[Rfam]
RNA sequence: CAUCCCGUCAUUGGGGAGUAGCCUCCUUUCAUUGGUAAAGGGUCUGCAUCAACAUACUUGACCGCCCGGUCAUGGUGCAGACAGCUCCGGUUUGGCAAGACCUUUGACCAUGAUGCCUUCGGUAAAGCCGGGAGGGUGUUGUGGUCAUGGGAAAACGCCCGGCUUGGAGUU
Numbered sequence: 001c002a003u004c005c006c007g008u009c010a011u012u013g014g015g016g017a018g019u020a021g022c023c024u025c026c027u028u029u030c031a032u033u034g035g036u037a038a039a040g041g042g043u044c045u046g047c048a049u050c051a052a053c054a055u056a057c058u059u060g061a062c063c064g065c066c067c068g069g070u071c072a073u074g075g076u077g078c079a080g081a082c083a084g085c086u087c088c089g090g091u092u093u094g095g096c097a098a099g100a101c102c103u104u105u106g107a108c109c110a111u112g113a114u115g116c117c118u119u120c121g122g123u124a125a126a127g128c129c130g131g132g133a134g135g136g137u138g139u140u141g142u143g144g145u146c147a148u149g150g151g152a153a154a155a156c157g158c159c160c161g162g163c164u165u166g167g168a169g170u171u
Stems, first nucleotide, its partner, number of pairs: 026040003042082010059072005083171007
RNA: Manganese Mn2+ riboswitch aptamer (yybP-ykoY)
Organism: Candidatus Thiothrix singaporensis